[Rfam]
RNA sequence: GUUGGCUAUGGAGACAUGUGCCCGACCACUUUGGGUGGGAAGAUCGUGGGGACCCUGUGUGCUAUUGCAGGGGUAUUGACCAUUGCGCUUCCCGUCCCCGUCAUCGUCUCGAAC
Numbered sequence: 001g002u003u004g005g006c007u008a009u010g011g012a013g014a015c016a017u018g019u020g021c022c023c024g025a026c027c028a029c030u031u032u033g034g035g036u037g038g039g040a041a042g043a044u045c046g047u048g049g050g051g052a053c054c055c056u057g058u059g060u061g062c063u064a065u066u067g068c069a070g071g072g073g074u075a076u077u078g079a080c081c082a083u084u085g086c087g088c089u090u091c092c093c094g095u096c097c098c099c100g101u102c103a104u105c106g107u108c109u110c111g112a113a114c
Base pairs, nucleotide, nucleotide: 001114002113005110008107009106010105011104013102014101015100018097020095021094037077038076040074049063050062
RNA: Potassium channel RNA editing signal
Organism: Struthio camelus